[Rfam]
A member of the RNA family "MIR5565 microRNA precursor family" from Sorghum bicolor, 109 nucleotides long. A search with the family's covariance model found it, with a score of 105 bits. NCBI's taxonomy places the organism under Eukaryota, Mesangiospermae, Petrosaviidae, Poaceae, Sorghum.
RNA sequence: GUUGUCGUAUUUACUUCAAUCCAUGUGGGUUGGUGUGGAUUAGAGUGGAAAUUAUUUCAAGUUCCACUCCAAUCCAACUCAACCCAUGUGGAUUGAUGUGAAUACGACU
Numbered sequence: 001g002u003u004g005u006c007g008u009a010u011u012u013a014c015u016u017c018a019a020u021c022c023a024u025g026u027g028g029g030u031u032g033g034u035g036u037g038g039a040u041u042a043g044a045g046u047g048g049a050a051a052u053u054a055u056u057u058c059a060a061g062u063u064c065c066a067c068u069c070c071a072a073u074c075c076a077a078c079u080c081a082a083c084c085c086a087u088g089u090g091g092a093u094u095g096a097u098g099u100g101a102a103u104a105c106g107a108c109u
Base pairs, nucleotide, nucleotide: 004108005107006106007105008104009103010102011101012100013099014098016096017095018094019093020092021091022090023089024088025087026086027085028084029083030082031081032080036076037075038074039073040072041071043069045067046066047065